RNA sequence: CAAUUAUCCAGAGCAGACGGAGGGAUUUGGCCCGCUGAUGUCUCGGCAGCGGGCCAUCAGGCACUGUGCCAAUUCCAACAAGCAGAUGCUUGAACGAUAAUCC
Dot-bracket structure: ..((((((....(.((((...(((..[[[[)))......)))))((((.(((.(.....).)..))))))....]]]](((((....)))))...))))))..
Numbered sequence: 001c002a003a004u005u006a007u008c009c010a011g012a013g014c015a016g017a018c019g020g021a022g023g024g025a026u027u028u029g030g031c032c033c034g035c036u037g038a039u040g041u042c043u044c045g046g047c048a049g050c051g052g053g054c055c056a057u058c059a060g061g062c063a064c065u066g067u068g069c070c071a072a073u074u075c076c077a078a079c080a081a082g083c084a085g086a087u088g089c090u091u092g093a094a095c096g097a098u099a100a101u102c103c
Stems, first nucleotide, its partner, number of pairs: 003101006013044001015043004022033003027078004045070004050066002052062001054060001079092005
The record is a 103-nucleotide sequence from Lacicoccus alkaliphilus, which matches "SAM riboswitch aptamer (S box leader)" in Rfam.
The base pairs follow the family's consensus structure, which is taken from published work.